Rfam assigns this 79-nucleotide RNA from Crocodylus porosus to the family "Mammalian CPEB3 ribozyme".
RNA sequence: AGAGGUCACAAGUUUUAGGCCAUAGCAGCAGCAGUCAUGGUGUGGUCUGUCAGAUUCCAAUGAAUCUGUGAAUUCUGCU
Number, nucleotide and partner (000 for none) at each position: 001a000002g000003a000004g000005g000006u000007c000008a000009c000010a000011a000012g000013u000014u000015u000016u000017a000018g047019g046020c045021c044022a000023u000024a079025g078026c077027a076028g075029c000030a073031g043032c042033a041034g000035u000036c000037a000038u000039g000040g000041u033042g032043u031044g021045g020046u019047c018048u000049g000050u000051c068052a067053g066054a065055u064056u063057c062058c000059a000060a000061u000062g057063a056064a055065u054066c053067u052068g051069u000070g000071a000072a000073u030074u000075c028076u027077g026078c025079u024
A reference for the family is Salehi-Ashtiani et al. (2006), "A genomewide search for ribozymes reveals an HDV-like sequence in the human CPEB3 gene", Science. Pairs were carried over by alignment from the consensus structure, which is taken from published work.